Record summary
L31-Firmicutes ribosomal protein leader: a 38-nucleotide RNA. Pairs were carried over by alignment from the consensus structure, which is taken from published work. The family's RNA type in Rfam is cis-regulatory leader. Clan: Ribosomal Protein L31 Leader clan.
RNA sequence: CUAUGAUUGAAUAGGAAACCAAAUCAUGGCGGAAGGAG
Numbered sequence: 001c002u003a004u005g006a007u008u009g010a011a012u013a014g015g016a017a018a019c020c021a022a023a024u025c026a027u028g029g030c031g032g033a034a035g036g037a038g
Stems, first nucleotide, its partner, number of pairs: 001029008